[Rfam]
RNA sequence: CCCAGAGGUAUUGAUAGGUGAUGUCCUCCAGAUGGGGUGACAACCACAAUUACACCAACCUGCGCAGAUGCGCAGGUUUUUUUU
Numbered sequence: 001c002c003c004a005g006a007g008g009u010a011u012u013g014a015u016a017g018g019u020g021a022u023g024u025c026c027u028c029c030a031g032a033u034g035g036g037g038u039g040a041c042a043a044c045c046a047c048a049a050u051u052a053c054a055c056c057a058a059c060c061u062g063c064g065c066a067g068a069u070g071c072g073c074a075g076g077u078u079u080u081u082u083u084u
Stems, first nucleotide, its partner, number of pairs: 017056004023041003027037002058077008
Dot-bracket structure: ................((((..(((.((.......)).)))...........)))).((((((((....)))))))).......
RNA: OmrA-B family
Organism: Pluralibacter gergoviae